Notes:
This 127-nucleotide sequence from Neogobius melanostomus belongs to the Rfam family "Small nucleolar RNA SNORA49". The family has 21 seed sequences and 722 matches in Rfam 15.1. Rfam describes the family as follows. The snoRNA ACA49 has no identified RNA target. NB genomic sequence 1-nt different from published. Rfam classes the family as an H/ACA-box small nucleolar RNA. Rfam links the family to the GO terms RNA processing and nucleolus.

RNA sequence: CUCCCCAUCUUACACCAGGGCCUCCUGGCGGUGGAAAGUUCUGGUUUUAAAAUGGGGUAAAAUAAAGUGCUUUCUUCCCUCCCUGCUGGACAGUGUUCCUUCCAGGGUCUACAAACGAGCGCACACU
Numbered sequence: 001c002u003c004c005c006c007a008u009c010u011u012a013c014a015c016c017a018g019g020g021c022c023u024c025c026u027g028g029c030g031g032u033g034g035a036a037a038g039u040u041c042u043g044g045u046u047u048u049a050a051a052a053u054g055g056g057g058u059a060a061a062a063u064a065a066a067g068u069g070c071u072u073u074c075u076u077c078c079c080u081c082c083c084u085g086c087u088g089g090a091c092a093g094u095g096u097u098c099c100u101u102c103c104a105g106g107g108u109c110u111a112c113a114a115a116c117g118a119g120c121g122c123a124c125a126c127u
Stems, first nucleotide, its partner, number of pairs: 003057006015044006023035003068121003073117001081107005088100002